[Rfam]
RNA sequence: UAGAAGAAUCGGCAAAGCCAUCGAAAGACGGCGACGCAAAGCUACGAGGGCCUAUACCGUUUGGAUGGCAGCCAACUUAAUGUA
Numbered sequence: 001u002a003g004a005a006g007a008a009u010c011g012g013c014a015a016a017g018c019c020a021u022c023g024a025a026a027g028a029c030g031g032c033g034a035c036g037c038a039a040a041g042c043u044a045c046g047a048g049g050g051c052c053u054a055u056a057c058c059g060u061u062u063g064g065a066u067g068g069c070a071g072c073c074a075a076c077u078u079a080a081u082g083u084a
Base pairs, nucleotide, nucleotide: 012037013036017032018031019030021028022027040078041077043075048073049072050069051068052067058063
Dot-bracket structure: ...........((...(((.((....)).)))...))..((.(....(((((.....(....)...)))..)).).))......